[Rfam]
Overview: The record is an 85-nucleotide RNA from Crassaminicella thermophila, which matches "pan motif" in Rfam. The organism belongs to Crassaminicella, within Bacteria. The family's consensus secondary structure is taken from published work.
RNA sequence: CGGAUAGUAUCGAAAGAACUAUACCUUUUUACAAAAAAAAUUUCAGAACAAAUCUGCUUUGAGCCUUUGGGACAGAGACAGUUGA
Numbered sequence: 001c002g003g004a005u006a007g008u009a010u011c012g013a014a015a016g017a018a019c020u021a022u023a024c025c026u027u028u029u030u031a032c033a034a035a036a037a038a039a040a041u042u043u044c045a046g047a048a049c050a051a052a053u054c055u056g057c058u059u060u061g062a063g064c065c066u067u068u069g070g071g072a073c074a075g076a077g078a079c080a081g082u083u084g085a
Stems, first nucleotide, its partner, number of pairs: 002025002004022005010017002054081003057077005064071002